[Rfam]
RNA sequence: GUGGUAAAUUGUCUUAUCGCUGUUUCAUUUAUGAAAUGGAGGAAAGUCCGAACACCCUAGUGCAUCGUAGUGGUUAACAGCCAUCGACCGAGAGGUUAGGAAAAGUGCAACAGAAAGUAUGUACAGGUAAUGCUGUAGUGAAAUCAGGUAAACUCUAUGUGGUGCAAUGUCAUGUAAACCAACGUUUGAGGGUUGCACGCCCAAUGUUGGAGGGUAGACAGCUAAAGUCUAUUGGUGACGAUAGACUCAGAUAAAUGAUAAGAACUCUUUGGAGUACAGAAUUCGGCUUAUAGAUUUACCUAUUAA
Number, nucleotide and partner (000 for none) at each position: 001g000002u000003g300004g299005u298006a297007a296008a295009u294010u293011g291012u263013c262014u261015u260016a259017u258018c257019g000020c039021u038022g037023u036024u035025u034026c033027a032028u000029u000030u000031a000032u027033g026034a025035a024036a023037u022038g021039g020040a000041g000042g000043a000044a289045a288046g287047u000048c286049c285050g284051a283052a282053c164054a163055c162056c161057c000058u000059a000060g198061u197062g196063c195064a000065u000066c159067g158068u157069a156070g084071u083072g082073g081074u080075u000076a000077a000078c000079a000080g074081c073082c072083a071084u070085c099086g097087a096088c095089c094090g000091a000092g000093a000094g089095g088096u087097u086098a000099g085100g155101a154102a000103a000104a000105g153106u152107g149108c148109a000110a000111c000112a000113g000114a000115a000116a000117g000118u000119a000120u000121g000122u137123a136124c135125a134126g133127g000128u000129a000130a000131u000132g000133c126134u125135g124136u123137a122138g000139u000140g000141a000142a000143a000144u000145c000146a000147g000148g108149u107150a000151a000152a106153c105154u101155c100156u069157a068158u067159g066160u000161g056162g055163u054164g053165c000166a000167a000168u220169g219170u218171c217172a000173u000174g000175u000176a000177a000178a000179c210180c209181a208182a207183c206184g000185u000186u000187u000188g000189a000190g202191g201192g200193u199194u000195g063196c062197a061198c060199g193200c192201c191202c190203a000204a000205u000206g183207u182208u181209g180210g179211a000212g000213g000214g000215u000216a000217g171218a170219c169220a168221g000222c000223u000224a000225a000226a000227g246228u245229c244230u243231a242232u241233u240234g239235g000236u000237g000238a000239c234240g233241a232242u231243a230244g229245a228246c227247u000248c000249a000250g000251a000252u000253a000254a000255a000256u000257g018258a017259u016260a015261a014262g013263a012264a000265c000266u000267c000268u000269u000270u000271g000272g000273a000274g000275u000276a000277c000278a000279g000280a000281a000282u052283u051284c050285g049286g048287c046288u045289u044290a000291u011292a000293g010294a009295u008296u007297u006298a005299c004300c003301u000302a000303u000304u000305a000306a000
Shown here is a 306-nucleotide sequence from Winogradskyella sp. KYW1333, a member of the family "Bacterial RNase P class A". Rfam classes the family as a ribozyme. The base pairs follow the family's consensus structure, which is taken from published work. The literature on the family includes a 1998 paper in Annu Rev Biochem by Frank and Pace, "Ribonuclease P: unity and diversity in a tRNA processing ribozyme". The source organism's lineage runs through Bacteria, Bacteroidota, Flavobacteriia, Flavobacteriaceae and Winogradskyella. Gene Ontology terms of the family: dimeric ribonuclease P complex, ribonuclease P activity and tRNA processing. The match comes from Rfam's covariance-model search (196 bits).